Small nucleolar RNA SNORD89: a 116-nucleotide RNA sequence from Camelus ferus. The base pairs follow the family's consensus structure, which was predicted with RNAalifold. The organism belongs to Camelus, within Eukaryota. A reference for the family is Huttenhofer et al. (2001), "RNomics: an experimental approach that identifies 201 candidates for novel, small, non-messenger RNAs in mouse", EMBO J. snoRNA HBII-289 belongs to the family of C/D snoRNAs. It is the human orthologue of the mouse MBII-289 and has no identified RNA target. Rfam links the family to the GO terms RNA processing and nucleolus. Rfam 15.1 lists 642 matches to the family in 573 species.
RNA sequence: ACUGAGGAGUGAUGACACGAAAAGGCCGAAUUGCAGUGUGUCCCGCAGCAGUUGGCUCUCUUUGUGGGCGCACAAUGACAGGACCUCCUGAAGCGAACCUCUGGUCUGACCUCAGU
Numbered sequence: 001a002c003u004g005a006g007g008a009g010u011g012a013u014g015a016c017a018c019g020a021a022a023a024g025g026c027c028g029a030a031u032u033g034c035a036g037u038g039u040g041u042c043c044c045g046c047a048g049c050a051g052u053u054g055g056c057u058c059u060c061u062u063u064g065u066g067g068g069c070g071c072a073c074a075a076u077g078a079c080a081g082g083a084c085c086u087c088c089u090g091a092a093g094c095g096a097a098c099c100u101c102u103g104g105u106c107u108g109a110c111c112u113c114a115g116u
Base pairs, nucleotide, nucleotide: 001116002115003114004113005112006111007110014106015105016104025034026033035102036101038099041096042095043093046090047089048088051073052072055069056068057067058066075086077084